RNA: MIR2118 microRNA precursor family
Organism: Oryza punctata
RNA sequence: GCUGGGAAGAGAAGGAAAUGGGUAUCCAAGAGCGGUUGGCAUGGGAACAUGGAGGAAAGCCCAACACAGCCUCUCCUCUAAAUUCAGGGGUUGAGACGUGUUUCGAUGCUUUCGGCUUUCCCGGUGCCUCUCAUGCCUAUCGUUCUUCGGUGCUCUUUCCUCCUCCUCCAUGCU
Numbered sequence: 001g002c003u004g005g006g007a008a009g010a011g012a013a014g015g016a017a018a019u020g021g022g023u024a025u026c027c028a029a030g031a032g033c034g035g036u037u038g039g040c041a042u043g044g045g046a047a048c049a050u051g052g053a054g055g056a057a058a059g060c061c062c063a064a065c066a067c068a069g070c071c072u073c074u075c076c077u078c079u080a081a082a083u084u085c086a087g088g089g090g091u092u093g094a095g096a097c098g099u100g101u102u103u104c105g106a107u108g109c110u111u112u113c114g115g116c117u118u119u120c121c122c123g124g125u126g127c128c129u130c131u132c133a134u135g136c137c138u139a140u141c142g143u144u145c146u147u148c149g150g151u152g153c154u155c156u157u158u159c160c161u162c163c164u165c166c167u168c169c170a171u172g173c174u
Stems, first nucleotide, its partner, number of pairs: 009165003013161001015159003020155003025150002028147007036139001038137009048126003052122001054121007